[Rfam]
Nucleotides: 162
Stems, first nucleotide, its partner, number of pairs: 012120004016047006025041001048088004053084001055081003059077003091114002093111001094109002097107002136160004141156001143154001145152002
Number, partner (000 for none) and nucleotide at each position: 001000g002000u003000a004000c005000u006000u007000a008000c009000c010000c011000a012120g013119c014118a015117g016047g017046g018045g019044a020043g021042a022000g023000a024000g025041c026000a027000u028000g029000a030000a031000c032000c033000c034000a035000a036000a037000a038000g039000c040000a041025g042021u043020u044019u045018c046017c047016c048088a049087g050086g051085g052000u053084g054000a055081g056080g057079c058000u059077u060076a061075u062000c063000c064000a065000c066000u067000g068000a069000c070000u071000c072000c073000a074000a075061a076060u077059g078000u079057g080056c081055u082000g083000a084053c085051c086050c087049u088048u089000g090000g091114a092113a093111u094109u095108u096000c097107c098106c099000c100000a101000a102000a103000u104000g105000u106098g107097g108095a109094a110000a111093a112000c113092u114091u115000g116000a117015c118014u119013g120012u121000a122000u123000a124000a125000u126000u127000u128000g129000u130000g131000g132000u133000g134000g135000u136160g137159g138158g139157g140000u141156a142000c143154c144000c145152u146151a147000u148000u149000u150000g151146u152145g153000u154143g155000u156141u157139c158138c159137c160136u161000u162000a
Record summary:
U1 spliceosomal RNA: a 162-nucleotide RNA from Nyctereutes procyonoides. The match comes from Rfam's covariance-model search (80 bits). Rfam classes the family as a spliceosomal small nuclear RNA. The organism belongs to Nyctereutes, within Eukaryota.